[Rfam]
RNA: Acido-Lenti-1 RNA
RNA sequence: CCCACCAAUGAAUUGGUGGGCUAUGAUAUGGGGCAUGGCUACGCCAUU
Number, nucleotide and partner (000 for none) at each position: 001c020002c019003c018004a017005c016006c015007a014008a013009u000010g000011a000012a000013u008014u007015g006016g005017u004018g003019g002020g001021c000022u000023a000024u000025g000026a000027u000028a000029u000030g000031g000032g000033g000034c000035a047036u046037g045038g044039c043040u000041a000042c000043g039044c038045c037046a036047u035048u000